[Rfam]
Rfam assigns this 96-nucleotide sequence to the family "PhotoRC-II RNA". It is annotated as a cis-regulatory element. The family's consensus secondary structure is taken from published work.
RNA sequence: CAACACCGACACUGCUCUCAAACCAAGACCUAUAGGCAGUAUAAUACUUCGUCUUUCAUAUCCAGUAGUGAGGGAUUACUGGAAAUAAGUUUCGCA
Numbered sequence: 001c002a003a004c005a006c007c008g009a010c011a012c013u014g015c016u017c018u019c020a021a022a023c024c025a026a027g028a029c030c031u032a033u034a035g036g037c038a039g040u041a042u043a044a045u046a047c048u049u050c051g052u053c054u055u056u057c058a059u060a061u062c063c064a065g066u067a068g069u070g071a072g073g074g075a076u077u078a079c080u081g082g083a084a085a086u087a088a089g090u091u092u093c094g095c096a
Base pairs, nucleotide, nucleotide: 012039013038014037015036016035018034025055026054027053028052029051061083062082063081064080065079066078067077